[Rfam]
This 241-nucleotide sequence belongs to the Rfam family "FuFi-1 RNA". By type it is a small RNA.
RNA sequence: CCCGAUGAGAUAACGGAUGCGCGAUAGGCUGGCUGAAUCACAACUGCCAAAGUGAUGUGGCGCAAGAAGAAGCGGGCAGUGCUUUUGUCUGCGGAACCAUCAAAAACAGAGCGGUCGUCAGUGAUGACCUACCAUAAAAAAACUCUCGCUCUGGCCCCACCCGGAUUUUGGCUCCUGCAUUGUUCCUCGGGUGAAAAAAUGUGGGGAAAAUAUUCCGUGAAAGCACCACGGUUUAUUUUUC
Numbered sequence: 001c002c003c004g005a006u007g008a009g010a011u012a013a014c015g016g017a018u019g020c021g022c023g024a025u026a027g028g029c030u031g032g033c034u035g036a037a038u039c040a041c042a043a044c045u046g047c048c049a050a051a052g053u054g055a056u057g058u059g060g061c062g063c064a065a066g067a068a069g070a071a072g073c074g075g076g077c078a079g080u081g082c083u084u085u086u087g088u089c090u091g092c093g094g095a096a097c098c099a100u101c102a103a104a105a106a107c108a109g110a111g112c113g114g115u116c117g118u119c120a121g122u123g124a125u126g127a128c129c130u131a132c133c134a135u136a137a138a139a140a141a142a143c144u145c146u147c148g149c150u151c152u153g154g155c156c157c158c159a160c161c162c163g164g165a166u167u168u169u170g171g172c173u174c175c176u177g178c179a180u181u182g183u184u185c186c187u188c189g190g191g192u193g194a195a196a197a198a199a200u201g202u203g204g205g206g207a208a209a210a211u212a213u214u215c216c217g218u219g220a221a222a223g224c225a226c227c228a229c230g231g232u233u234u235a236u237u238u239u240u241c
Base pairs, nucleotide, nucleotide: 001059003057004056006054007053031048032047033046035044038204039203040202041201042200060185062183063182064181065180072092073091074090075089076088077087078086079226080225081224082223083222084221085220093175094174095173097171098170099169208238209237210236211235212234215231216230217229218228219227